This 149-nucleotide sequence from Panicum virgatum belongs to the Rfam family "Small nucleolar RNA snoR74".
The source organism's lineage runs through Eukaryota, commelinids, Poales, Poaceae and Panicum sect. Hiantes.
Pairs were carried over by alignment from the consensus structure, which was predicted with WAR.
By type it is an H/ACA-box small nucleolar RNA.
RNA sequence: GAAAAGGCAGGGCGCUGUCCUCUCUACUAGCAGUAGCAGUGCCCCCGUAAACUUUAGGAACAUCAUGUUCAUCGUUAUUGGGUGAACCUUCGGACUCGUUCAUGUGUUGGAUGAUCAUGUCCAUUGGUUCAGUAAAUGAUGGCACAUUU
Numbered sequence: 001g002a003a004a005a006g007g008c009a010g011g012g013c014g015c016u017g018u019c020c021u022c023u024c025u026a027c028u029a030g031c032a033g034u035a036g037c038a039g040u041g042c043c044c045c046c047g048u049a050a051a052c053u054u055u056a057g058g059a060a061c062a063u064c065a066u067g068u069u070c071a072u073c074g075u076u077a078u079u080g081g082g083u084g085a086a087c088c089u090u091c092g093g094a095c096u097c098g099u100u101c102a103u104g105u106g107u108u109g110g111a112u113g114a115u116c117a118u119g120u121c122c123a124u125u126g127g128u129u130c131a132g133u134a135a136a137u138g139a140u141g142g143c144a145c146a147u148u149u
Base pairs, nucleotide, nucleotide: 005054006053007052011043012042014040015039016038017037069142070141071140072139073138074137075136076135083131084130085129086128087127088126